[Rfam]
RNA sequence: CAUCCAUCCCGAGCGGCCGAGAGAUCUGGCUCUGCGACGCCGCAGCAACCACCCAUCGUUGGGCAGGUGCUACCGCCAGGAGCGAUGGAGG
Numbered sequence: 001c002a003u004c005c006a007u008c009c010c011g012a013g014c015g016g017c018c019g020a021g022a023g024a025u026c027u028g029g030c031u032c033u034g035c036g037a038c039g040c041c042g043c044a045g046c047a048a049c050c051a052c053c054c055a056u057c058g059u060u061g062g063g064c065a066g067g068u069g070c071u072a073c074c075g076c077c078a079g080g081a082g083c084g085a086u087g088g089a090g091g
Stems, first nucleotide, its partner, number of pairs: 001091001003089006013043005021032003026079004044071004049067002052062002075083001
RNA: SAM riboswitch aptamer (S box leader)